[Rfam]
RNA sequence: AGCCUCAUUCUGGAUUAGAAGGAGCACUGCUGGUUGGUGUCCAGCACUGGUCAGUGCGGCUGACACUGAGACUCAGGUCAUGCUCCCAUUGCAGUAAAUAUUUGCAGUGAUGACAAUGGGGCCUGUAACAUUC
Numbered sequence: 001a002g003c004c005u006c007a008u009u010c011u012g013g014a015u016u017a018g019a020a021g022g023a024g025c026a027c028u029g030c031u032g033g034u035u036g037g038u039g040u041c042c043a044g045c046a047c048u049g050g051u052c053a054g055u056g057c058g059g060c061u062g063a064c065a066c067u068g069a070g071a072c073u074c075a076g077g078u079c080a081u082g083c084u085c086c087c088a089u090u091g092c093a094g095u096a097a098a099u100a101u102u103u104g105c106a107g108u109g110a111u112g113a114c115a116a117u118g119g120g121g122c123c124u125g126u127a128a129c130a131u132u133c
Stems, first nucleotide, its partner, number of pairs: 002060003006056003022042001024040004074125004087112006
A member of the RNA family "Small nucleolar RNA SNORA1" from Octodon degus, 133 nucleotides long. The base pairs follow the family's consensus structure, which was predicted with PFOLD. Rfam describes the family as follows. ACA1 is a member of the H/ACA class of snoRNA that guide the sites of modification of uridines to pseudouridines. Gene Ontology terms of the family: nucleolus and RNA processing. Rfam classes the family as an H/ACA-box small nucleolar RNA.